The record is a 67-nucleotide RNA sequence from Niallia endozanthoxylica, which matches "Bacillaceae-1 RNA" in Rfam. The family's consensus secondary structure is taken from published work. A search with the family's covariance model found it, with a score of 57 bits.
[Rfam]
RNA sequence: GUAAGAGGAAUAUUGACUAAAGAAGACACGUCCUGUGGCAAACGUCGAUGUCAGCACAUCCUGUGCA
Numbered sequence: 001g002u003a004a005g006a007g008g009a010a011u012a013u014u015g016a017c018u019a020a021a022g023a024a025g026a027c028a029c030g031u032c033c034u035g036u037g038g039c040a041a042a043c044g045u046c047g048a049u050g051u052c053a054g055c056a057c058a059u060c061c062u063g064u065g066c067a
Base pairs, nucleotide, nucleotide: 011050012049013048014047015046016045017044025039027037028036029035054066055065056064057063